[Rfam]
Notes:
Potassium channel RNA editing signal: a 113-nucleotide RNA sequence from Muraenolepis orangiensis. Lineage of the source: Eukaryota > Deuterostomia > Euteleostomi > Acanthomorphata > Muraenolepis. By type it is a cis-regulatory element. For this family Rfam cites "Control of human potassium channel inactivation by editing of a small mRNA hairpin" (Bhalla et al., Nat Struct Mol Biol, 2004). This family represents a group of sequences related to the human potassium channel Kv1.1 hairpin element which directs the efficient modification of an adenosine to inosine by an adenosine deaminase acting on RNA (ADAR).

RNA sequence: GUAGUUAUGGAGACAUGGUUCCCAAGACGAUCGCGGGGAAGAUAUUUGGCUCCAUCUGUUCGCUGAGUGGGGUGCUGGUAAUCGCCCUGCCCGUCCCCGUCAUCGUGUCCAAC
Numbered sequence: 001g002u003a004g005u006u007a008u009g010g011a012g013a014c015a016u017g018g019u020u021c022c023c024a025a026g027a028c029g030a031u032c033g034c035g036g037g038g039a040a041g042a043u044a045u046u047u048g049g050c051u052c053c054a055u056c057u058g059u060u061c062g063c064u065g066a067g068u069g070g071g072g073u074g075c076u077g078g079u080a081a082u083c084g085c086c087c088u089g090c091c092c093g094u095c096c097c098c099g100u101c102a103u104c105g106u107g108u109c110c111a112a113c
Base pairs, nucleotide, nucleotide: 001113002112004109006107007106008105009104010103012101013100014099017096018095020093036076037075039073049061